[Rfam]
RNA sequence: GACCUCGCUCUAAGUGGUGAGCGGGAAGAGCUGAGUGGAGCUGAUAGG
Numbered sequence: 001g002a003c004c005u006c007g008c009u010c011u012a013a014g015u016g017g018u019g020a021g022c023g024g025g026a027a028g029a030g031c032u033g034a035g036u037g038g039a040g041c042u043g044a045u046a047g048g
Stems, first nucleotide, its partner, number of pairs: 004025007029042004
gut-2 RNA: a 48-nucleotide RNA sequence.
Pairs were carried over by alignment from the consensus structure, which is taken from published work.